[Rfam]
RNA sequence: GCCAGGCUUGGUGGCCCACACCUGUAGUCCCAGCUACUCGUGAGGCUGAGACAGGAGGCUCUCUUGAGUCCAGAGUUCUGGGCUAUAGUGUGCUAUGCCGAACUGGUGUCUGCACUAAGUUUGGCAUCAUUAUGGUUACCUCCUAGGAGCAGGGGAGCACCAGGUUGCCUAAGAAGGGGCGAACCGGCCCAGGUCAGAAACUGAGCAGGUCAAAACUCCCAUGCUCAUCAGUAGUGGGAUCUUGCCUGUGAAUAGCCACUGCACUCCAGUCUGGGCAACUAUUGAGACUCCAUU
Numbered sequence: 001g002c003c004a005g006g007c008u009u010g011g012u013g014g015c016c017c018a019c020a021c022c023u024g025u026a027g028u029c030c031c032a033g034c035u036a037c038u039c040g041u042g043a044g045g046c047u048g049a050g051a052c053a054g055g056a057g058g059c060u061c062u063c064u065u066g067a068g069u070c071c072a073g074a075g076u077u078c079u080g081g082g083c084u085a086u087a088g089u090g091u092g093c094u095a096u097g098c099c100g101a102a103c104u105g106g107u108g109u110c111u112g113c114a115c116u117a118a119g120u121u122u123g124g125c126a127u128c129a130u131u132a133u134g135g136u137u138a139c140c141u142c143c144u145a146g147g148a149g150c151a152g153g154g155g156a157g158c159a160c161c162a163g164g165u166u167g168c169c170u171a172a173g174a175a176g177g178g179g180c181g182a183a184c185c186g187g188c189c190c191a192g193g194u195c196a197g198a199a200a201c202u203g204a205g206c207a208g209g210u211c212a213a214a215a216c217u218c219c220c221a222u223g224c225u226c227a228u229c230a231g232u233a234g235u236g237g238g239a240u241c242u243u244g245c246c247u248g249u250g251a252a253u254a255g256c257c258a259c260u261g262c263a264c265u266c267c268a269g270u271c272u273g274g275g276c277a278a279c280u281a282u283u284g285a286g287a288c289u290c291c292a293u294u
Stems, first nucleotide, its partner, number of pairs: 001046003004023003009018003028043002030040001051294001054291004060287004068276007078269005084263001086261005092256005098250001102249002105246004110238002113236005119229001121227001123225005128167002131164001133162004140155005169173001176219004186211004194203001
Rfam assigns this 294-nucleotide sequence from Cricetulus griseus to the family "Metazoan signal recognition particle RNA". NCBI's taxonomy places the organism under Eukaryota, Deuterostomia, Euarchontoglires, Glires, Cricetulus. The family's RNA type in Rfam is non-coding RNA gene. Rfam links the family to the GO terms SRP-dependent cotranslational protein targeting to membrane, signal sequence recognition and signal recognition particle, endoplasmic reticulum targeting.